[Rfam]
RNA: TPP riboswitch aptamer (THI element)
RNA sequence: GUCCAACGACAGGGGAGCGCCCAGGCGCUGAGAGUGCGGUCCGCCGCAGACCCUCGAACCUGAUCCGGUUAGCACCGGCGAAGGGAGUCGGGAAUCUCAGGCG
Numbered sequence: 001g002u003c004c005a006a007c008g009a010c011a012g013g014g015g016a017g018c019g020c021c022c023a024g025g026c027g028c029u030g031a032g033a034g035u036g037c038g039g040u041c042c043g044c045c046g047c048a049g050a051c052c053c054u055c056g057a058a059c060c061u062g063a064u065c066c067g068g069u070u071a072g073c074a075c076c077g078g079c080g081a082a083g084g085g086a087g088u089c090g091g092g093a094a095u096c097u098c099a100g101g102c103g
Stems, first nucleotide, its partner, number of pairs: 007090004011054004017028004035048005059084003065078004